[Rfam]
Shown here is an 82-nucleotide sequence from Vagococcus silagei, a member of the family "Group II catalytic intron D1-D4-1".
Rfam's curators write: Group II introns are found in rRNA, tRNA and mRNA of organelles in fungi, plants and protists, and also in mRNA in bacteria.
Its family is annotated with Group II intron splicing in the Gene Ontology.
RNA sequence: CAAUUUAAGUGGUGACAUUUAGAUGAAUCGAAAGAAGUCAGCCAACGUCAUAGUAGUAGUUAGACUGAUAACUAUGAAGGAU
Numbered sequence: 001c002a003a004u005u006u007a008a009g010u011g012g013u014g015a016c017a018u019u020u021a022g023a024u025g026a027a028u029c030g031a032a033a034g035a036a037g038u039c040a041g042c043c044a045a046c047g048u049c050a051u052a053g054u055a056g057u058a059g060u061u062a063g064a065c066u067g068a069u070a071a072c073u074a075u076g077a078a079g080g081a082u
Stems, first nucleotide, its partner, number of pairs: 001025002004023008037046002047082003056075006
For this family Rfam cites "The ins and outs of group II introns" (Bonen and Vogel, Trends Genet, 2001).